RNA: SAH (S-adenosyl-L-homocysteine) riboswitch aptamer
RNA sequence: CCAUCCGAGGGGCGCUGCAGCGGGCCGUCCGAGCGAUGCGUCCGUCAGGCUCGGAGGGAGCGCGUCCCCACGGUGGCCAUCGCGGCCCUGUAAACGCACAACGGCGCCCAUUCGCA
Number, nucleotide and partner (000 for none) at each position: 001c000002c057003a000004u055005c054006c053007g052008a051009g000010g000011g000012g000013c000014g000015c000016u000017g000018c000019a000020g000021c044022g043023g042024g041025c040026c000027g000028u000029c000030c000031g000032a000033g000034c000035g000036a000037u000038g000039c000040g025041u024042c023043c022044g021045u000046c000047a000048g000049g000050c000051u008052c007053g006054g005055a004056g000057g002058g000059a000060g000061c000062g000063c000064g000065u000066c000067c000068c000069c000070a000071c000072g000073g000074u000075g000076g000077c000078c000079a000080u000081c000082g000083c000084g000085g000086c000087c000088c000089u000090g000091u000092a000093a000094a000095c000096g000097c000098a000099c000100a000101a000102c000103g000104g000105c000106g000107c000108c000109c000110a000111u000112u000113c000114g000115c000116a000